[Rfam]
RNA sequence: CUUCCUCGUCGCGACUGGCGUCUGGGUGGGUCACCACCGGGGAGCGACUUCUCAUGGGAAUCGACCGCGCGCCUGGGCCGAUGCG
Numbered sequence: 001c002u003u004c005c006u007c008g009u010c011g012c013g014a015c016u017g018g019c020g021u022c023u024g025g026g027u028g029g030g031u032c033a034c035c036a037c038c039g040g041g042g043a044g045c046g047a048c049u050u051c052u053c054a055u056g057g058g059a060a061u062c063g064a065c066c067g068c069g070c071g072c073c074u075g076g077g078c079c080g081a082u083g084c085g
Stems, first nucleotide, its partner, number of pairs: 008048005015041002017073005026037004062080002065077002
The record is an 85-nucleotide RNA from Microbacterium bovistercoris, which matches "ZMP/ZTP riboswitch aptamer (pfl RNA motif)" in Rfam. The family's consensus secondary structure is taken from published work.